[Rfam]
RNA sequence: CUUCUGCUAGGAUGAAUCAUGAAGCAAUUCACAUGUCAGACUUCAGAGAUUUUGUAGAAGAAUCGAUGAGAAGAAAUAUUCAUGUUUUCUGAGCAGUUG
Numbered sequence: 001c002u003u004c005u006g007c008u009a010g011g012a013u014g015a016a017u018c019a020u021g022a023a024g025c026a027a028u029u030c031a032c033a034u035g036u037c038a039g040a041c042u043u044c045a046g047a048g049a050u051u052u053u054g055u056a057g058a059a060g061a062a063u064c065g066a067u068g069a070g071a072a073g074a075a076a077u078a079u080u081c082a083u084g085u086u087u088u089c090u091g092a093g094c095a096g097u098u099g
Stems, first nucleotide, its partner, number of pairs: 001099001004096004048064006